[Rfam]
RNA sequence: GCAUCUGUUAAUAUAUGUUUGAUGGCUAGUGUUAAUAAGAACUUAUUGACACUAGCCAUCAAACAUAUAUUAACAGAAUG
Numbered sequence: 001g002c003a004u005c006u007g008u009u010a011a012u013a014u015a016u017g018u019u020u021g022a023u024g025g026c027u028a029g030u031g032u033u034a035a036u037a038a039g040a041a042c043u044u045a046u047u048g049a050c051a052c053u054a055g056c057c058a059u060c061a062a063a064c065a066u067a068u069a070u071u072a073a074c075a076g077a078a079u080g
Stems, first nucleotide, its partner, number of pairs: 005076005012069015028053007